[Rfam]
RNA sequence: CUCAAGGAAGCACUUUGUCUGCGUGGACAGAAAAUGUGUUCUUGAGGGCGCGCUUUGUGUUCGCGUGGACAAAUUGCUUCCUUGAGG
Dot-bracket structure: ((((((((((((.((((((((.(((((((.(((.((((.((....)).)))).))).))))))).)))))))).)))))))))))).
Description: A member of the RNA family "MIR7486 microRNA precursor family" from Gossypium schwendimanii, 87 nucleotides long.